[Rfam]
The record is a 97-nucleotide RNA sequence from Rhododendron simsii, which matches "mir-156 microRNA precursor family" in Rfam. A reference for the family is Reinhart et al. (2002), "MicroRNAs in plants", Genes Dev. The organism belongs to Rhododendron, within Eukaryota. A search with the family's covariance model found it, with a score of 77 bits. Rfam describes the family as follows. This family represents the plant microRNA (miRNA) precursor mir-156.

RNA sequence: AUGACAGAAGAGAGUGAGCACAUAUGGUCUCUUUUCUUGCAUUAUCAUGUUCCUCUCUAUGCUGGAAGCUAUGCGUGCUCACUGCUCUAUCUGUCAU
Numbered sequence: 001a002u003g004a005c006a007g008a009a010g011a012g013a014g015u016g017a018g019c020a021c022a023u024a025u026g027g028u029c030u031c032u033u034u035u036c037u038u039g040c041a042u043u044a045u046c047a048u049g050u051u052c053c054u055c056u057c058u059a060u061g062c063u064g065g066a067a068g069c070u071a072u073g074c075g076u077g078c079u080c081a082c083u084g085c086u087c088u089a090u091c092u093g094u095c096a097u
Base pairs, nucleotide, nucleotide: 001097002096003095004094005093006092007091008090010087011086012085013083014082015081016080017079018078019077020076021075023073024072025071026070027069028068